[Rfam]
RNA sequence: UUUCGCCGAAGGCAAACCCUCCGAAAGGUGGGGACGCAAAACCACCGGCCUACAGCGCGCAAGCGCCACGGUAGCGGGGUCGCCAAC
Numbered sequence: 001u002u003u004c005g006c007c008g009a010a011g012g013c014a015a016a017c018c019c020u021c022c023g024a025a026a027g028g029u030g031g032g033g034a035c036g037c038a039a040a041a042c043c044a045c046c047g048g049c050c051u052a053c054a055g056c057g058c059g060c061a062a063g064c065g066c067c068a069c070g071g072u073a074g075c076g077g078g079g080u081c082g083c084c085a086a087c
Base pairs, nucleotide, nucleotide: 012037013036017032018031019030021028022027041080042079043078045077046076047075048072049071050070055066056065057064058063